Notes
The family of this 128-nucleotide sequence from Marinovum algicola is "Ruegeria cis8 sRNA". Pairs were carried over by alignment from the consensus structure, which was predicted with RNAfold. The match comes from Rfam's covariance-model search (115 bits).
[Rfam]
RNA sequence: AUCGCCAGCACCUUGGCGAUAUAGGGGAUCAGCGGCAGAUUCAGCACCAGCAGCACCAGGUUGCCGAUGUACAUCGAGAUGAUCACCGCCCAGAAGAUCUGCGGCUCGUCGAUCAUCAGCCGCGGUCC
Numbered sequence: 001a002u003c004g005c006c007a008g009c010a011c012c013u014u015g016g017c018g019a020u021a022u023a024g025g026g027g028a029u030c031a032g033c034g035g036c037a038g039a040u041u042c043a044g045c046a047c048c049a050g051c052a053g054c055a056c057c058a059g060g061u062u063g064c065c066g067a068u069g070u071a072c073a074u075c076g077a078g079a080u081g082a083u084c085a086c087c088g089c090c091c092a093g094a095a096g097a098u099c100u101g102c103g104g105c106u107c108g109u110c111g112a113u114c115a116u117c118a119g120c121c122g123c124g125g126u127c128c
Base pairs, nucleotide, nucleotide: 003018004017005016006015007014008013026128027127029125030124033122034121035120036119038114039113040112043109046106048104050102051101052100053099057096061093062092063091073083074082075081